The record is a 128-nucleotide RNA from Thalassobium sp. R2A62, which matches "Ruegeria cis8 sRNA" in Rfam. Lineage of the source: Bacteria > Pseudomonadati > Alphaproteobacteria > Rhodobacterales > Thalassobium. Pairs were carried over by alignment from the consensus structure, which was predicted with RNAfold. The family's RNA type in Rfam is small RNA.
RNA sequence: ACUGCGAGCACCUUAGCGAUGUACGGGAUCAGCGGCAGGUUCAGGAUCAAAAGUACCAGAUUGCCAAGGUACAUCGAAAUGAUCACUGCCCAGAAAAUCUGUGGCUCAUCAACCAUCAAGCGCGGACC
Numbered sequence: 001a002c003u004g005c006g007a008g009c010a011c012c013u014u015a016g017c018g019a020u021g022u023a024c025g026g027g028a029u030c031a032g033c034g035g036c037a038g039g040u041u042c043a044g045g046a047u048c049a050a051a052a053g054u055a056c057c058a059g060a061u062u063g064c065c066a067a068g069g070u071a072c073a074u075c076g077a078a079a080u081g082a083u084c085a086c087u088g089c090c091c092a093g094a095a096a097a098u099c100u101g102u103g104g105c106u107c108a109u110c111a112a113c114c115a116u117c118a119a120g121c122g123c124g125g126a127c128c
Base pairs, nucleotide, nucleotide: 003018004017005016007014008013026128027127029125030124033122034121038114039113040112043109045107046106048104050102052100053099061093062092063091067087068086073083074082075081